This 117-nucleotide sequence from Niallia endozanthoxylica belongs to the Rfam family "ylbH leader". The source organism's lineage runs through Bacteria, Bacillota, Caryophanales, Bacillaceae and Niallia. About the family: This family is a putative regulatory RNA structure that is found upstream of the ylbH gene in B. subtilis and related low GC Gram-positive bacteria. The match comes from Rfam's covariance-model search (106 bits). By type it is a cis-regulatory leader.
[Rfam]
RNA sequence: AUAAAAAAAAGCCCUGCAACUUUUGCAGGGUCCUUCUAUAUCCUAUAAGGAUAGAAGGUAAAGGGAGAGGAGAAACCGGAGGAAGAACUUAUGGGGAAACGUAAGUCUUCUCCGCGG
Numbered sequence: 001a002u003a004a005a006a007a008a009a010a011g012c013c014c015u016g017c018a019a020c021u022u023u024u025g026c027a028g029g030g031u032c033c034u035u036c037u038a039u040a041u042c043c044u045a046u047a048a049g050g051a052u053a054g055a056a057g058g059u060a061a062a063g064g065g066a067g068a069g070g071a072g073a074a075a076c077c078g079g080a081g082g083a084a085g086a087a088c089u090u091a092u093g094g095g096g097a098a099a100c101g102u103a104a105g106u107c108u109u110c111u112c113c114g115c116g117g
Stems, first nucleotide, its partner, number of pairs: 012029002018024002031065005040052005077114004082110004087106005